The record is an 82-nucleotide RNA from Ensete ventricosum, which matches "Small nucleolar RNA snoR53Y" in Rfam. It is annotated as a C/D-box small nucleolar RNA.
Nucleotides: 082
Stems, first nucleotide, its partner, number of pairs: 001081005
Number, partner (000 for none) and nucleotide at each position: 001081g002080u003079u004078c005077c006000c007000a008000a009000u010000g011000a012000u013000u014000g015000c016000c017000u018000a019000u020000g021000u022000u023000a024000a025000c026000c027000a028000u029000g030000c031000u032000a033000a034000u035000g036000c037000u038000g039000a040000a041000a042000u043000a044000c045000u046000u047000u048000g049000a050000a051000g052000a053000a054000g055000a056000a057000a058000a059000u060000u061000u062000g063000u064000u065000g066000u067000u068000u069000g070000a071000c072000c073000u074000g075000a076000g077005g078004g079003a080002a081001c082000c
Its Rfam clan is "snoR53 clan".